[Rfam]
Eukaryotic large subunit ribosomal RNA: a 352-nucleotide part of an RNA from Thelohanellus kitauei.
RNA sequence: CGGACAAUGUAAUCGUAGUUGUUUGGUGUUUGUGUUUUUCAACUUGUUGUUAAAUUCUUAACGCCGAAUAACGCGCCAGGCUCUAUGCUAAUGCAGCUGGCAGUGUAUUGGGUGGUUCGACAAAGAGUGUUUCUUGAGAAAUGCUCUGUCGGCUGACAGUACAAACUGUUGUAGAGUUGGCGCGGCAUGGAUGUGUGUGCUUGUGCGUUGAAGGUUCGUUGGCGUGUAGUCGGUGCGAUCCCACAAAGUGGGACACAUUGGUGUAGCGUUGGCGUAGUUUUGACGUCUCGACGAAUGUCGCACACAAACUCUUGGCGAGAUAUGACAUUGUCCGACCCGUCUUGAAACACGG
Numbered sequence: 001c002g003g004a005c006a007a008u009g010u011a012a013u014c015g016u017a018g019u020u021g022u023u024u025g026g027u028g029u030u031u032g033u034g035u036u037u038u039u040c041a042a043c044u045u046g047u048u049g050u051u052a053a054a055u056u057c058u059u060a061a062c063g064c065c066g067a068a069u070a071a072c073g074c075g076c077c078a079g080g081c082u083c084u085a086u087g088c089u090a091a092u093g094c095a096g097c098u099g100g101c102a103g104u105g106u107a108u109u110g111g112g113u114g115g116u117u118c119g120a121c122a123a124a125g126a127g128u129g130u131u132u133c134u135u136g137a138g139a140a141a142u143g144c145u146c147u148g149u150c151g152g153c154u155g156a157c158a159g160u161a162c163a164a165a166c167u168g169u170u171g172u173a174g175a176g177u178u179g180g181c182g183c184g185g186c187a188u189g190g191a192u193g194u195g196u197g198u199g200c201u202u203g204u205g206c207g208u209u210g211a212a213g214g215u216u217c218g219u220u221g222g223c224g225u226g227u228a229g230u231c232g233g234u235g236c237g238a239u240c241c242c243a244c245a246a247a248g249u250g251g252g253a254c255a256c257a258u259u260g261g262u263g264u265a266g267c268g269u270u271g272g273c274g275u276a277g278u279u280u281u282g283a284c285g286u287c288u289c290g291a292c293g294a295a296u297g298u299c300g301c302a303c304a305c306a307a308a309c310u311c312u313u314g315g316c317g318a319g320a321u322a323u324g325a326c327a328u329u330g331u332c333c334g335a336c337c338c339g340u341c342u343u344g345a346a347a348c349a350c351g352g
Stems, first nucleotide, its partner, number of pairs: 001334010012323001020070007075316006337352004

Pairs were carried over by alignment from the consensus structure, which is taken from published work. On this family, see Yusupov et al., Science 2001: "Crystal structure of the ribosome at 5.5 A resolution". The source organism's lineage runs through Eukaryota, Eumetazoa, Myxozoa, Myxobolidae and Thelohanellus.